[Rfam]
RNA sequence: GCGGAGGAAGCCGAAAAUCUGGAAAAGAGUAGGCA
Numbered sequence: 001g002c003g004g005a006g007g008a009a010g011c012c013g014a015a016a017a018u019c020u021g022g023a024a025a026a027g028a029g030u031a032g033g034c035a
Stems, first nucleotide, its partner, number of pairs: 002021004010034003